[Rfam]
RNA sequence: GGGAUCCCUAGCGGGGGUAACGGGGCAAACCCUGAGGAAACUCCGGCCUCCAACCCUUACAAGAACCCCGUAAGGGGUAGGGAUAGAAUCCCUGGCUACUACACAGAAACGAAGCCCUAAUACUAGAUAGAUGAUUGGACCUACUAGCAAGUAAUUGCUAGUAGUACAUGAUAGAUGAAAGUAUUAGGGCUUGAAACGGUAGACCUCUUGGGAGCAAGUUGAAGGGGGAUGAGCAAAGGGUUGACUCCUUAUAGUACGCUUAGUCGAAUCCCCUCAGUACAGAAGCCGGGUUAUGCUAGGGAUCCC
Number, nucleotide and partner (000 for none) at each position: 001g306002g305003g304004a000005u302006c301007c300008c299009u298010a297011g296012c000013g274014g273015g272016g271017g270018u000019a000020a000021c034022g033023g032024g031025g030026c000027a000028a000029a000030c025031c024032c023033u022034g021035a000036g000037g000038a000039a292040a291041c290042u000043c289044c288045g287046g286047c285048c214049u213050c212051c211052a000053a241054c240055c239056c238057u237058u236059a000060c210061a209062a208063g207064a206065a078066c077067c076068c075069c074070g000071u000072a000073a000074g069075g068076g067077g066078u065079a093080g092081g091082g090083a089084u000085a000086g000087a000088a000089u083090c082091c081092c080093u079094g205095g204096c000097u000098a000099c202100u201101a200102c199103a000104c000105a000106g000107a000108a000109a000110c000111g000112a000113a000114g190115c189116c188117c187118u186119a185120a184121u183122a182123c181124u180125a000126g000127a000128u000129a000130g000131a000132u000133g000134a000135u000136u168137g167138g000139a000140c000141c000142u000143a000144c000145u000146a000147g000148c000149a000150a000151g000152u000153a000154a000155u000156u000157g000158c000159u000160a000161g000162u000163a000164g000165u000166a000167c137168a136169u000170g000171a000172u000173a000174g000175a000176u000177g000178a000179a000180a124181g123182u122183a121184u120185u119186a118187g117188g116189g115190c114191u000192u000193g000194a000195a000196a000197c000198g000199g102200u101201a100202g099203a000204c095205c094206u064207c063208u062209u061210g060211g051212g050213a049214g048215c000216a000217a000218g257219u256220u000221g000222a000223a249224g248225g247226g246227g245228g000229a000230u000231g000232a000233g000234c000235a000236a058237a057238g056239g055240g054241u053242u000243g000244a000245c227246u226247c225248c224249u223250u000251a000252u000253a000254g000255u000256a219257c218258g000259c000260u000261u000262a000263g000264u000265c000266g000267a000268a000269u000270c017271c016272c015273c014274u013275c000276a000277g000278u000279a000280c000281a000282g000283a000284a000285g047286c046287c045288g044289g043290g041291u040292u039293a000294u000295g000296c011297u010298a009299g008300g007301g006302a005303u000304c003305c002306c001
RNA: Archaeal RNase P
Organism: Saccharolobus solfataricus